[Rfam]
Nucleotides: 115
Stems, first nucleotide, its partner, number of pairs: 009024005068113013082099003
Number, partner (000 for none) and nucleotide at each position: 001000g002000u003000u004000g005000a006000a007000g008000c009024u010023c011022c012021a013020u014000c015000u016000a017000c018000a019000a020013a021012u022011g023010g024009a025000u026000a027000a028000g029000a030000c031000u032000u033000u034000u035000g036000u037000u038000u039000u040000a041000g042000u043000g044000u045000g046000u047000a048000c049000g050000a051000g052000g053000u054000u055000u056000u057000g058000a059000a060000a061000a062000a063000u064000a065000a066000a067000a068113a069112a070111g071110g072109g073108a074107g075106c076105a077104a078103u079102a080101c081000c082099a083098a084097c085000c086000c087000u088000a089000u090000u091000a092000a093000u094000a095000g096000g097084g098083u099082u100000g101080g102079u103078a104077u105076u106075g107074c108073u109072c110071c111070c112069u113068u114000u115000u
Plastid-psbA-1 3UTR RNA: a 115-nucleotide RNA sequence from Viola websteri. The base pairs follow the family's consensus structure, which was predicted with LocARNA. The family's RNA type in Rfam is cis-regulatory element. A reference for the family is Richter et al. (2023), "Retrograde signaling in plants: A critical review focusing on the GUN pathway and beyond", Plant Commun. The source organism's lineage runs through Eukaryota, Streptophytina, Euphyllophyta, Violaceae and Viola subsect. Rostratae.